A member of the RNA family "Glycine riboswitch aptamer" from Pelistega ratti, 83 nucleotides long. The family is grouped with related families in Rfam's "Glycine riboswitch clan". A search with the family's covariance model found it, with a score of 59 bits. The base pairs follow the family's consensus structure. Its family is annotated with glycine biosynthetic process in the Gene Ontology.
RNA sequence: AAUAAGUACUCUGGAGAGACUUGCGUAUAGCAAGCGCCGAAGGUGAAUCAUAAACUCUCAGGCAAAUGGACAGAGGGGGCUUU
Numbered sequence: 001a002a003u004a005a006g007u008a009c010u011c012u013g014g015a016g017a018g019a020c021u022u023g024c025g026u027a028u029a030g031c032a033a034g035c036g037c038c039g040a041a042g043g044u045g046a047a048u049c050a051u052a053a054a055c056u057c058u059c060a061g062g063c064a065a066a067u068g069g070a071c072a073g074a075g076g077g078g079g080c081u082u083u
Stems, first nucleotide, its partner, number of pairs: 007077001009075005020034004036063003039059002043057001045055001